Rfam assigns this 57-nucleotide RNA from Apium graveolens to the family "Plastid-ccsA-ndhD-1 3UTR RNA". The family is grouped with related families in Rfam's "Plastid-ccsA_ndhD 3UTR RNA clan". By type it is a cis-regulatory element. For this family Rfam cites "Retrograde signaling in plants: A critical review focusing on the GUN pathway and beyond" (Richter et al., Plant Commun, 2023). The organism belongs to Apium, within Eukaryota.

[Rfam]
RNA sequence: GAACCAAUGAGAACCAUGUGAAUCCAGUAGUGCGGGGAUUCGCAUGGUUCUCACAAA
Number, nucleotide and partner (000 for none) at each position: 001g000002a000003a000004c000005c000006a000007a000008u053009g052010a051011g050012a049013a048014c047015c046016a045017u044018g043019u042020g041021a040022a039023u038024c037025c036026a000027g000028u000029a000030g000031u000032g000033c000034g000035g000036g025037g024038a023039u022040u021041c020042g019043c018044a017045u016046g015047g014048u013049u012050c011051u010052c009053a008054c000055a000056a000057a000